[Rfam]
RNA sequence: ACAGGCGGUGGAGAUGGCAUUCCUCCCUUAACCGCUGCCUUGCAGCUAAUGAUGCCUACGAUAAC
Numbered sequence: 001a002c003a004g005g006c007g008g009u010g011g012a013g014a015u016g017g018c019a020u021u022c023c024u025c026c027c028u029u030a031a032c033c034g035c036u037g038c039c040u041u042g043c044a045g046c047u048a049a050u051g052a053u054g055c056c057u058a059c060g061a062u063a064a065c
Stems, first nucleotide, its partner, number of pairs: 010026004016056006034046004
Dot-bracket structure: .........[[[[..((((((.]]]].......((((.....))))....)))))).........
RNA: Fluoride riboswitch aptamer (crcB RNA motif)